[Rfam]
RNA sequence: UGCAUUGUAUGGUAUUGGCACUCAGCAGUUUAUUCAUGACAGUGUUCAAAGGACAGCACCAUAGAAAUUCAGUGUCUGGCACCAUUGGUUUUCUUGGCUUUGUACAUGUUAAACCUAGUAUUUCUAUUGAUAUAGUA
Numbered sequence: 001u002g003c004a005u006u007g008u009a010u011g012g013u014a015u016u017g018g019c020a021c022u023c024a025g026c027a028g029u030u031u032a033u034u035c036a037u038g039a040c041a042g043u044g045u046u047c048a049a050a051g052g053a054c055a056g057c058a059c060c061a062u063a064g065a066a067a068u069u070c071a072g073u074g075u076c077u078g079g080c081a082c083c084a085u086u087g088g089u090u091u092u093c094u095u096g097g098c099u100u101u102g103u104a105c106a107u108g109u110u111a112a113a114c115c116u117a118g119u120a121u122u123u124c125u126a127u128u129g130a131u132a133u134a135g136u137a
Stems, first nucleotide, its partner, number of pairs: 002059001005056003015052002018045005026038002062126007069118001071116002079105001081103002